RNA sequence: UAAUAUCGCUGGGGGAGUUUCGACUGAGAGCGGCCUUGGGCCGUGACCCUUAGUACCUGAUCCGGGUAAUGCCGGCGUAGGGAAGCGCAACGAAAUCAGU
Numbered sequence: 001u002a003a004u005a006u007c008g009c010u011g012g013g014g015g016a017g018u019u020u021c022g023a024c025u026g027a028g029a030g031c032g033g034c035c036u037u038g039g040g041c042c043g044u045g046a047c048c049c050u051u052a053g054u055a056c057c058u059g060a061u062c063c064g065g066g067u068a069a070u071g072c073c074g075g076c077g078u079a080g081g082g083a084a085g086c087g088c089a090a091c092g093a094a095a096u097c098a099g100u
Stems, first nucleotide, its partner, number of pairs: 007087004011050004016044001017024002031043005056081004062075004

Shown here is a 100-nucleotide RNA from Geobacter sp. SVR, a member of the family "TPP riboswitch aptamer (THI element)". A reference for the family is Rodionov et al. (2002), "Comparative genomics of thiamin biosynthesis in procaryotes. New genes and regulatory mechanisms", J Biol Chem. It scores 78 bits against the family's covariance model. The family's consensus secondary structure is taken from published work.